A member of the RNA family "Group II catalytic intron D1-D4-3" from Endozoicomonas numazuensis, 185 nucleotides long. The source organism's lineage runs through Bacteria, Pseudomonadota, Oceanospirillales, Endozoicomonadaceae and Endozoicomonas. Gene Ontology term of the family: Group II intron splicing. Rfam describes the family as follows. Group II introns are found in rRNA, tRNA and mRNA of organelles in fungi, plants and protists, and also in mRNA in bacteria.

RNA sequence: UCCAUCGCGAGGUGGAAUCUGAAGAAAGCUGAAGGCAAAACACUGGCCCGACGAACAGAAAUCGCAUAGGAGGCGGUCGCAGUGGGUGAGAAGGCCAAUAGCUUCAAUACCCAAAGGGCACAAGAGCCCGAUACUUGCACGGAAACUGCGGACGUAGAUGCGGCAGGAAGGUCACGCGCAUUACC
Numbered sequence: 001u002c003c004a005u006c007g008c009g010a011g012g013u014g015g016a017a018u019c020u021g022a023a024g025a026a027a028g029c030u031g032a033a034g035g036c037a038a039a040a041c042a043c044u045g046g047c048c049c050g051a052c053g054a055a056c057a058g059a060a061a062u063c064g065c066a067u068a069g070g071a072g073g074c075g076g077u078c079g080c081a082g083u084g085g086g087u088g089a090g091a092a093g094g095c096c097a098a099u100a101g102c103u104u105c106a107a108u109a110c111c112c113a114a115a116g117g118g119c120a121c122a123a124g125a126g127c128c129c130g131a132u133a134c135u136u137g138c139a140c141g142g143a144a145a146c147u148g149c150g151g152a153c154g155u156a157g158a159u160g161c162g163g164c165a166g167g168a169a170g171g172u173c174a175c176g177c178g179c180a181u182u183a184c185c
Stems, first nucleotide, its partner, number of pairs: 001016006028185001030183003035177002040172001043171001047167002050164001062163006073155003077151007084112004090105004